[Rfam]
RNA: DUF3800-IX RNA
RNA sequence: GACCCGUUUUCCGAACUGUCACCGUAUGGUGCGCGUGUCUGGAUAACCAGAAUAGGAAGCGGGUAUUUU
Numbered sequence: 001g002a003c004c005c006g007u008u009u010u011c012c013g014a015a016c017u018g019u020c021a022c023c024g025u026a027u028g029g030u031g032c033g034c035g036u037g038u039c040u041g042g043a044u045a046a047c048c049a050g051a052a053u054a055g056g057a058a059g060c061g062g063g064u065a066u067u068u069u
Base pairs, nucleotide, nucleotide: 002064003063004062005061006060007059009058010057011056012055017035018034019033020031021030022029023028038051039050040049041048